[Rfam]
RNA sequence: UUUAAUAGAUAAAUGAUACCGCAUAUAAUCCGGUGAAUUGGCACUGGAGUAUCUACAAAGAGCCAUAACUCUUUACUAUGGGGAAUUAUUGUCGUACU
Number, nucleotide and partner (000 for none) at each position: 001u000002u000003u000004a000005a000006u000007a000008g000009a000010u000011a000012a000013a000014u000015g000016a000017u000018a000019c083020c082021g000022c080023a079024u078025a077026u000027a000028a000029u048030c047031c046032g045033g044034u043035g042036a000037a000038u000039u000040g000041g000042c035043a034044c033045u032046g031047g030048a029049g000050u000051a000052u000053c000054u000055a000056c000057a074058a073059a072060g071061a070062g069063c000064c000065a000066u000067a000068a000069c062070u061071c060072u059073u058074u057075a000076c000077u025078a024079u023080g022081g000082g020083g019084a000085a000086u000087u000088a000089u000090u000091g000092u000093c000094g000095u000096a000097c000098u000
The record is a 98-nucleotide RNA from Thermoanaerobacterium sp. RBIITD, which matches "Purine riboswitch aptamer" in Rfam. A search with the family's covariance model found it, with a score of 65 bits. Lineage of the source: Bacteria > Bacillati > Clostridia > Thermoanaerobacteraceae > Thermoanaerobacterium. Rfam 15.1 lists 4,097 matches to the family in 1,411 species.